[Rfam]
Rfam assigns this 297-nucleotide RNA sequence from Opisthorchis felineus to the family "Metazoan signal recognition particle RNA". The signal recognition particle (SRP) is a universally conserved ribonucleoprotein. The family has 91 seed sequences and 383,523 matches in Rfam 15.1. By type it is a non-coding RNA gene. NCBI's taxonomy places the organism under Eukaryota, Protostomia, Trematoda, Opisthorchiata, Opisthorchis.
RNA sequence: GCUGGGCGUGGUGGCGUGCGCCUGUAAUCUAGCUACUUGGAGGCCGGGUGGCGGAAUUUCUCGGGGACGGCAGUUCUGGUGCUGACUCGCGCAUGUUGAUCGGGCGUCCACGCUAAGCACGGCGCCGAUAUGGAUGGUCAGUCGGAAGGCAGGCUGUCCAGGUCGCCUAGGGAGGGGCGAACCGGCCCAGGGGGGAAACCCAGCUUGCAAAAGUCCCCGCGUGGUGCGGUAGCGGGAUAGCGCCUGUGAAUGGCGAGUCAGUGGCAGCCUGGCUGGCGCAGAAAGACCGCCUUCUUU
Numbered sequence: 001g002c003u004g005g006g007c008g009u010g011g012u013g014g015c016g017u018g019c020g021c022c023u024g025u026a027a028u029c030u031a032g033c034u035a036c037u038u039g040g041a042g043g044c045c046g047g048g049u050g051g052c053g054g055a056a057u058u059u060c061u062c063g064g065g066g067a068c069g070g071c072a073g074u075u076c077u078g079g080u081g082c083u084g085a086c087u088c089g090c091g092c093a094u095g096u097u098g099a100u101c102g103g104g105c106g107u108c109c110a111c112g113c114u115a116a117g118c119a120c121g122g123c124g125c126c127g128a129u130a131u132g133g134a135u136g137g138u139c140a141g142u143c144g145g146a147a148g149g150c151a152g153g154c155u156g157u158c159c160a161g162g163u164c165g166c167c168u169a170g171g172g173a174g175g176g177g178c179g180a181a182c183c184g185g186c187c188c189a190g191g192g193g194g195g196a197a198a199c200c201c202a203g204c205u206u207g208c209a210a211a212a213g214u215c216c217c218c219g220c221g222u223g224g225u226g227c228g229g230u231a232g233c234g235g236g237a238u239a240g241c242g243c244c245u246g247u248g249a250a251u252g253g254c255g256a257g258u259c260a261g262u263g264g265c266a267g268c269c270u271g272g273c274u275g276g277c278g279c280a281g282a283a284a285g286a287c288c289g290c291c292u293u294c295u296u297u
Stems, first nucleotide, its partner, number of pairs: 001044003004023007028041003046295003050291005057284005065274002068271003076267003080263009092252003096248001101246007108236002111234005117227004122222004126165004131160009141150003166172002174217005185208002192201003